The family of this 100-nucleotide RNA sequence from Branchiostoma floridae is "mir-2060 microRNA precursor family". It scores 65 bits against the family's covariance model. Rfam links the family to the GO terms RISC complex and miRNA-mediated post-transcriptional gene silencing. The organism belongs to Branchiostoma, within Eukaryota.

[Rfam]
RNA sequence: GUGUGUGUGUGUGUGGAUCGCGUUCAGCACCAAGGACAUGCAUGCCGACAUGUAUGUGUGUGUGGAUGGCGUUCAGCACCAAGGACAUGCAUGCCGACUU
Numbered sequence: 001g002u003g004u005g006u007g008u009g010u011g012u013g014u015g016g017a018u019c020g021c022g023u024u025c026a027g028c029a030c031c032a033a034g035g036a037c038a039u040g041c042a043u044g045c046c047g048a049c050a051u052g053u054a055u056g057u058g059u060g061u062g063u064g065g066a067u068g069g070c071g072u073u074c075a076g077c078a079c080c081a082a083g084g085a086c087a088u089g090c091a092u093g094c095c096g097a098c099u100u
Base pairs, nucleotide, nucleotide: 004091005090006089007088008087009086010085018081020079022077023076024075026073027072028071030069031068032067034061036059037058038057039056040055042053043052044051